[Rfam]
RNA: SAM riboswitch aptamer (S box leader)
Organism: Salinibacter ruber
RNA sequence: CAUUCAUCCAGAAGGGUGAAGGGAGCAGGCCCGAUGAAGCCCUGGCAACCGCCGUCGGCACCCCCCGACGGAAAGGUGCCCCAUCCUGCCUCGACUGCUGUCGAGGAAAGAUGAGUG
Numbered sequence: 001c002a003u004u005c006a007u008c009c010a011g012a013a014g015g016g017u018g019a020a021g022g023g024a025g026c027a028g029g030c031c032c033g034a035u036g037a038a039g040c041c042c043u044g045g046c047a048a049c050c051g052c053c054g055u056c057g058g059c060a061c062c063c064c065c066c067g068a069c070g071g072a073a074a075g076g077u078g079c080c081c082c083a084u085c086c087u088g089c090c091u092c093g094a095c096u097g098c099u100g101u102c103g104a105g106g107a108a109a110g111a112u113g114a115g116u117g
Stems, first nucleotide, its partner, number of pairs: 001117008013043005021032003026088004044080004049076002052071006084109001089106006